[Rfam]
RNA sequence: GAUUGAAUAUUUAACGCCGUUCGUAUAUCCUCGGUAAUAUGGACCGAAAGUUUCUACCGGGACACCUUAAACGUCCUGACUAUGAAGGCGGAUCGCCAGUUG
Numbered sequence: 001g002a003u004u005g006a007a008u009a010u011u012u013a014a015c016g017c018c019g020u021u022c023g024u025a026u027a028u029c030c031u032c033g034g035u036a037a038u039a040u041g042g043a044c045c046g047a048a049a050g051u052u053u054c055u056a057c058c059g060g061g062a063c064a065c066c067u068u069a070a071a072c073g074u075c076c077u078g079a080c081u082a083u084g085a086a087g088g089c090g091g092a093u094c095g096c097c098a099g100u101u102g
Stems, first nucleotide, its partner, number of pairs: 018088001020086006031047005058078006
RNA: Purine riboswitch aptamer
Organism: Lentibacillus sp. JNUCC-1